The family of this 71-nucleotide sequence from Nannospalax galili is "mir-3473 microRNA precursor family".
Rfam links the family to the GO terms RISC complex, cellular response to mechanical stimulus and miRNA-mediated post-transcriptional gene silencing.

[Rfam]
RNA sequence: ACCACUGAGCCAUCUCUCCAGCCCCAAUUAAAAAAAAAAAAAUUAUGGGACUGGAGAGAUGGCUCAGUGGU
Numbered sequence: 001a002c003c004a005c006u007g008a009g010c011c012a013u014c015u016c017u018c019c020a021g022c023c024c025c026a027a028u029u030a031a032a033a034a035a036a037a038a039a040a041a042a043u044u045a046u047g048g049g050a051c052u053g054g055a056g057a058g059a060u061g062g063c064u065c066a067g068u069g070g071u
Base pairs, nucleotide, nucleotide: 002070003069004068005067006066007065008064009063010062011061012060013059014058015057016056017055018054019053020052021051023049024048